[Rfam]
RNA sequence: GGGCACAAAUGUGCCUUCGCGACUCGUGUGGAUAGCCUAUCCUUUGGCCAGGAAGACGGUCCGUGAAUC
Numbered sequence: 001g002g003g004c005a006c007a008a009a010u011g012u013g014c015c016u017u018c019g020c021g022a023c024u025c026g027u028g029u030g031g032a033u034a035g036c037c038u039a040u041c042c043u044u045u046g047g048c049c050a051g052g053a054a055g056a057c058g059g060u061c062c063g064u065g066a067a068u069c
Stems, first nucleotide, its partner, number of pairs: 001016006029063005035057001037055002040053004
RNA: L13-Bacteroidia ribosomal protein leader